[Rfam]
RNA: ftsZ-DE RNA
Nucleotides: 070
Stems, first nucleotide, its partner, number of pairs: 001020008033068015
Number, partner (000 for none) and nucleotide at each position: 001020g002019a003018g004017c005016g006015c007014g008013c009000a010000a011000g012000u013008g014007c015006g016005u017004g018003c019002u020001c021000a022000c023000c024000a025000c026000a027000a028000c029000a030000c031000a032000a033068g034067g035066g036065a037064g038063u039062c040061g041060c042059c043058c044057g045056g046055g047054u048000c049000u050000c051000c052000c053000u054047g055046c056045c057044u058043g059042g060041g061040c062039g063038a064037c065036u066035c067034u068033u069000c070000c